[Rfam]
RNA sequence: CUAGUAAAGGGCAAACCUAUCGAAAGAUAGGGACGCAAAGCCACGGGCCUAACGCGCUCAGGAAUGACCUGGGAUGCCAUGGUCGCCGGGCUGCCGGAA
Dot-bracket structure: ...(......((...((((((....))))))..[))..((((.((((((...............................))).])))))))..)....
RNA: c-di-GMP-I-GGC riboswitch aptamer